[Rfam]
RNA sequence: GCAUGGGAUAGCCUUUCUAAUAUUUUUUAGACAACUAUAUUUUACCAAGACUAUCUCUAUAAAGCAAAAGCAACGGGCAAAACCGUUGCUUUUUUGUGU
Numbered sequence: 001g002c003a004u005g006g007g008a009u010a011g012c013c014u015u016u017c018u019a020a021u022a023u024u025u026u027u028u029a030g031a032c033a034a035c036u037a038u039a040u041u042u043u044a045c046c047a048a049g050a051c052u053a054u055c056u057c058u059a060u061a062a063a064g065c066a067a068a069a070g071c072a073a074c075g076g077g078c079a080a081a082a083c084c085g086u087u088g089c090u091u092u093u094u095u096g097u098g099u
Stems, first nucleotide, its partner, number of pairs: 005057001007055005016050003023044001028039002031036001062099001064097006070089007
Shown here is a 99-nucleotide RNA sequence from Streptococcus himalayensis, a member of the family "Streptococcus sRNA SpF25". It is annotated as a small RNA. Pairs were carried over by alignment from the consensus structure, which was predicted with mfold. For this family Rfam cites "Control of virulence by small RNAs in Streptococcus pneumoniae" (Mann et al., PLoS Pathog, 2012). A search with the family's covariance model found it, with a score of 75 bits.